tRNA: a 73-nucleotide RNA sequence from Clostridium sp. CAG:302. Clan: tRNA clan. The family's RNA type in Rfam is transfer RNA.

RNA sequence: GGUUCCGUGGUGUAGUGGUUAUCACGUUUGCCUGUCACGCAAAAGAUCGCGGGUUCAACUCCCGUCGGAACCG
Numbered sequence: 001g002g003u004u005c006c007g008u009g010g011u012g013u014a015g016u017g018g019u020u021a022u023c024a025c026g027u028u029u030g031c032c033u034g035u036c037a038c039g040c041a042a043a044a045g046a047u048c049g050c051g052g053g054u055u056c057a058a059c060u061c062c063c064g065u066c067g068g069a070a071c072c073g
Stems, first nucleotide, its partner, number of pairs: 001072007010025003027043005049065005

The organism belongs to Clostridium, within Bacteria.